RNA sequence: AAGCAUCACCUGAUAGGCCGGGAGCGAUACUCCUUCCUCCCCGGCUUGCAUUCAGAUGCAACAGUGAAUUUCCCUGCGCUUUCUGCCUGCCCGGAUUCCGUAGCAGUUCAGAUUGAAUAAGGGAGAACAUUU
Number, nucleotide and partner (000 for none) at each position: 001a000002a000003g059004c058005a057006u056007c055008a000009c000010c000011u050012g049013a000014u048015a047016g046017g045018c044019c043020g038021g037022g036023a035024g034025c000026g032027a000028u000029a000030c000031u000032c026033c000034u024035u023036c022037c021038u020039c000040c000041c000042c000043g019044g018045c017046u016047u015048g014049c012050a011051u000052u000053c000054a000055g007056a006057u005058g004059c003060a000061a000062c000063a000064g000065u000066g000067a000068a000069u000070u000071u124072c123073c122074c121075u120076g000077c000078g000079c115080u000081u000082u112083c111084u110085g109086c000087c106088u105089g104090c103091c000092c000093g000094g000095a000096u000097u000098c000099c000100g000101u000102a000103g090104c089105a088106g087107u000108u000109c085110a084111g083112a082113u000114u000115g079116a000117a000118u000119a000120a075121g074122g073123g072124a071125g000126a000127a000128c000129a000130u000131u000132u000

This 132-nucleotide RNA from Thamnophis sirtalis belongs to the Rfam family "Small nucleolar RNA SNORA31". Rfam's curators write: ACA31 (SNORA31) belongs to the H/ACA class of snoRNAs which are thought to guide the sites of modification of uridines to pseudouridines. ACA31 is predicted to guide the pseudouridylation of U3713 in 28S rRNA and U218 in 18S rRNA. This family includes the mouse homologue snoMBI-161. Rfam classes the family as an H/ACA-box small nucleolar RNA. The literature on the family includes a 2001 paper in EMBO J by Huttenhofer et al., "RNomics: an experimental approach that identifies 201 candidates for novel, small, non-messenger RNAs in mouse".